RNA sequence: GCUGGGCAGCGGAUGGCCGCCGGCGAGAAGCAAUUCAGACUGGAGGAAAGUCCGGGCACCACAGAGCAGGAUACUGGAUAACGUCCAGGCGCGGAAACGCGACAGAAAGUGCAACAGAAAUUAUACCGCCUGCGCAAGCAGGUAAGGGUGAAAUGGCGAGGUAAGAGCUCACCGCAUUCCUGGUGACAGGGGUGGCAAUGUAAACCUUAUCCGGUGCAAGACCAAGCAGGAGUUCGUCCGUAAGGACCUGAUGCGGCUCGUGUCAGCUGAACAUCCGGGUAGGUCGCUUGAGGCGGCUGGUAACAGUUCGUCCAGAGAGAUGGUCAUCACUCCGCAAGGGGUACAGAACCCGGCUUAUAACUGCCCGUAGAAU
Numbered sequence: 001g002c003u004g005g006g007c008a009g010c011g012g013a014u015g016g017c018c019g020c021c022g023g024c025g026a027g028a029a030g031c032a033a034u035u036c037a038g039a040c041u042g043g044a045g046g047a048a049a050g051u052c053c054g055g056g057c058a059c060c061a062c063a064g065a066g067c068a069g070g071a072u073a074c075u076g077g078a079u080a081a082c083g084u085c086c087a088g089g090c091g092c093g094g095a096a097a098c099g100c101g102a103c104a105g106a107a108a109g110u111g112c113a114a115c116a117g118a119a120a121u122u123a124u125a126c127c128g129c130c131u132g133c134g135c136a137a138g139c140a141g142g143u144a145a146g147g148g149u150g151a152a153a154u155g156g157c158g159a160g161g162u163a164a165g166a167g168c169u170c171a172c173c174g175c176a177u178u179c180c181u182g183g184u185g186a187c188a189g190g191g192g193u194g195g196c197a198a199u200g201u202a203a204a205c206c207u208u209a210u211c212c213g214g215u216g217c218a219a220g221a222c223c224a225a226g227c228a229g230g231a232g233u234u235c236g237u238c239c240g241u242a243a244g245g246a247c248c249u250g251a252u253g254c255g256g257c258u259c260g261u262g263u264c265a266g267c268u269g270a271a272c273a274u275c276c277g278g279g280u281a282g283g284u285c286g287c288u289u290g291a292g293g294c295g296g297c298u299g300g301u302a303a304c305a306g307u308u309c310g311u312c313c314a315g316a317g318a319g320a321u322g323g324u325c326a327u328c329a330c331u332c333c334g335c336a337a338g339g340g341g342u343a344c345a346g347a348a349c350c351c352g353g354c355u356u357a358u359a360a361c362u363g364c365c366c367g368u369a370g371a372a373u
Stems, first nucleotide, its partner, number of pairs: 003367007011358001012328007020043004027036002048356003052353005057216004064259004069212005074088005089103001090101004104207002109205002111201003126147002128143006155173002158170003174196001175194008220285004230276001232274002250264005292312005297306003

Rfam assigns this 373-nucleotide RNA from Fibrobacter sp. UWEL to the family "Bacterial RNase P class A". Taxonomically the source falls in Fibrobacter (Bacteria, Pseudomonadati, Fibrobacterota, Fibrobacterales). It scores 274 bits against the family's covariance model. Gene Ontology terms of the family: dimeric ribonuclease P complex, tRNA processing and ribonuclease P activity.